[Rfam]
RNA sequence: GGGCCCGUAGCUUAGCCAGGUAGAGCGCCCUGGGGCGAAGGCCCCGCGUAAGGCUCAUAACCGGGAGGUCCCGGGUUCGAAUCCCGGCGGGCCCA
Numbered sequence: 001g002g003g004c005c006c007g008u009a010g011c012u013u014a015g016c017c018a019g020g021u022a023g024a025g026c027g028c029c030c031u032g033g034g035g036c037g038a039a040g041g042c043c044c045c046g047c048g049u050a051a052g053g054c055u056c057a058u059a060a061c062c063g064g065g066a067g068g069u070c071c072c073g074g075g076u077u078c079g080a081a082u083c084c085c086g087g088c089g090g091g092c093c094c095a
Base pairs, nucleotide, nucleotide: 001094002093003092004091005090006089007088010026011025012024013023028065029064030063071087072086073085074084075083
RNA: tRNA
Organism: Vulcanisaeta distributa